Shown here is a 52-nucleotide RNA sequence from Dongia mobilis, a member of the family "ffh sRNA".
Pairs were carried over by alignment from the consensus structure, which is taken from published work.
The family's RNA type in Rfam is small RNA.
A search with the family's covariance model found it, with a score of 47 bits.
RNA sequence: GGCCCCGAGGGGCCCCGUCCGUCGGCGAGUUUCGCUCACGGGCGCGUUUUCG
Numbered sequence: 001g002g003c004c005c006c007g008a009g010g011g012g013c014c015c016c017g018u019c020c021g022u023c024g025g026c027g028a029g030u031u032u033c034g035c036u037c038a039c040g041g042g043c044g045c046g047u048u049u050u051c052g
Stems, first nucleotide, its partner, number of pairs: 016044007025035004
The source organism's lineage runs through Bacteria, Pseudomonadota, Alphaproteobacteria, Rhodospirillales and Dongia.